[Rfam]
RNA sequence: GCGAGAAGGGCGUUUGGUGGAUGCCUUGGCAGCAAGAGGCGAUGAAGGACGUGAUACCCUGCGAUAAGCCAUGGGGAGCCGGGAAUGGGCUUUGAUCCAUGGAUUUCCGAAUGGGGAAACCCACCUGACAGUUGAUUAUGGUUGCUCUUCGGGGCGAUCCAUAAUCGGCUGAGACAGGGACUUGGAACCUGAACACAUAGGGUUUCAAGGGCGAACCCGGGGAACUGAAACAUCUCAGUACCCGGAGGAAAGGACAUCAACAGAGACUCCGUCAGUAGUGGCGAGCGAACGCGGACCAGCCGAGCCGUGAGAACGACCAGAAUGGCCUGGAAAGGCCAGCCGGAGCGGGUGACAGCCCCGUAUGGGAAGUUCGAUCGGACGCAUCAAGUAGGGCGGGACACGUGGAAUCCUGUCCGAAGAUCGGGGGACCACCCUCGAAGGCUAAGUACUCCUUGCUGACCGAUAGCGAACCAGUACCGUGAGGGAAAGGUGAAAAGCACCCCGACGAGGGGAGUGAAACAGUACCUGAAACCGGACGCCUACAAU
Numbered sequence: 001g002c003g004a005g006a007a008g009g010g011c012g013u014u015u016g017g018u019g020g021a022u023g024c025c026u027u028g029g030c031a032g033c034a035a036g037a038g039g040c041g042a043u044g045a046a047g048g049a050c051g052u053g054a055u056a057c058c059c060u061g062c063g064a065u066a067a068g069c070c071a072u073g074g075g076g077a078g079c080c081g082g083g084a085a086u087g088g089g090c091u092u093u094g095a096u097c098c099a100u101g102g103a104u105u106u107c108c109g110a111a112u113g114g115g116g117a118a119a120c121c122c123a124c125c126u127g128a129c130a131g132u133u134g135a136u137u138a139u140g141g142u143u144g145c146u147c148u149u150c151g152g153g154g155c156g157a158u159c160c161a162u163a164a165u166c167g168g169c170u171g172a173g174a175c176a177g178g179g180a181c182u183u184g185g186a187a188c189c190u191g192a193a194c195a196c197a198u199a200g201g202g203u204u205u206c207a208a209g210g211g212c213g214a215a216c217c218c219g220g221g222g223a224a225c226u227g228a229a230a231c232a233u234c235u236c237a238g239u240a241c242c243c244g245g246a247g248g249a250a251a252g253g254a255c256a257u258c259a260a261c262a263g264a265g266a267c268u269c270c271g272u273c274a275g276u277a278g279u280g281g282c283g284a285g286c287g288a289a290c291g292c293g294g295a296c297c298a299g300c301c302g303a304g305c306c307g308u309g310a311g312a313a314c315g316a317c318c319a320g321a322a323u324g325g326c327c328u329g330g331a332a333a334g335g336c337c338a339g340c341c342g343g344a345g346c347g348g349g350u351g352a353c354a355g356c357c358c359c360g361u362a363u364g365g366g367a368a369g370u371u372c373g374a375u376c377g378g379a380c381g382c383a384u385c386a387a388g389u390a391g392g393g394c395g396g397g398a399c400a401c402g403u404g405g406a407a408u409c410c411u412g413u414c415c416g417a418a419g420a421u422c423g424g425g426g427g428a429c430c431a432c433c434c435u436c437g438a439a440g441g442c443u444a445a446g447u448a449c450u451c452c453u454u455g456c457u458g459a460c461c462g463a464u465a466g467c468g469a470a471c472c473a474g475u476a477c478c479g480u481g482a483g484g485g486a487a488a489g490g491u492g493a494a495a496a497g498c499a500c501c502c503c504g505a506c507g508a509g510g511g512g513a514g515u516g517a518a519a520c521a522g523u524a525c526c527u528g529a530a531a532c533c534g535g536a537c538g539c540c541u542a543c544a545a546u
Stems, first nucleotide, its partner, number of pairs: 008541010023526001024490002028461002030458007037450002039212002047108003050063003069102007078090003113122003124178004129173001181209005187203004216247001217245005227234002257264002267446001268295005278286002298443004305378003311372004317365003323338005341345001347359003391415008422437005477484002500512004